This 119-nucleotide RNA sequence from Paenibacillus sp. CAA11 belongs to the Rfam family "Bacillus sRNA ncr1015". By type it is a small RNA. The literature on the family includes a 2010 paper in Nucleic Acids Res by Irnov et al., "Identification of regulatory RNAs in Bacillus subtilis". The match comes from Rfam's covariance-model search (80 bits).

[Rfam]
RNA sequence: UUGUAGGAUAAACUAUUUGUGUCUACAUUUAAUUUACUCAAAUGUGAUCUGAUUAUAUCAUUGUGUCUGUUUAUACGCAAUAUCAAAGAACCUGAGAAUGAUCUCAGGUUCUUUUCUUG
Number, nucleotide and partner (000 for none) at each position: 001u000002u000003g000004u000005a000006g000007g000008a000009u000010a000011a000012a000013c000014u000015a000016u000017u000018u000019g000020u000021g000022u000023c000024u000025a000026c000027a000028u000029u000030u000031a000032a000033u000034u000035u073036a072037c000038u000039c069040a066041a000042a064043u063044g062045u000046g000047a000048u000049c000050u000051g000052a000053u000054u000055a000056u000057a000058u000059c000060a000061u000062u044063g043064u042065g000066u040067c000068u000069g039070u000071u000072u036073a035074u000075a000076c000077g000078c000079a000080a000081u000082a000083u000084c000085a114086a113087a112088g111089a110090a109091c108092c107093u106094g105095a104096g000097a000098a000099u000100g000101a000102u000103c000104u095105c094106a093107g092108g091109u090110u089111c088112u087113u086114u085115u000116c000117u000118u000119g000

The base pairs follow the family's consensus structure, which is taken from published work.